Shown here is a 93-nucleotide RNA from Salisediminibacterium halotolerans, a member of the family "Selenocysteine transfer RNA". Taxonomically the source falls in Salisediminibacterium (Bacteria, Bacillati, Bacillota, Bacillaceae). A reference for the family is Mizutani and Goto (2000), "Eukaryotic selenocysteine tRNA has the 9/4 secondary structure", FEBS Lett.

RNA sequence: GGGGCCGGAUGCGUAGCUGGUGCUUGCCGUGGUCUUCAAAACCAUCAGGGAGGCGCGUGGCGUCUCCGCUGGGUUCGAUUCCCAGACGGUCCC
Numbered sequence: 001g002g003g004g005c006c007g008g009a010u011g012c013g014u015a016g017c018u019g020g021u022g023c024u025u026g027c028c029g030u031g032g033u034c035u036u037c038a039a040a041a042c043c044a045u046c047a048g049g050g051a052g053g054c055g056c057g058u059g060g061c062g063u064c065u066c067c068g069c070u071g072g073g074u075u076c077g078a079u080u081c082c083c084a085g086a087c088g089g090u091c092c093c
Base pairs, nucleotide, nucleotide: 001093002092003091004090005089006088007087011027012026013025015024016023017022029045030044031043032042033041049067050066051065052064053063070084071083072082073081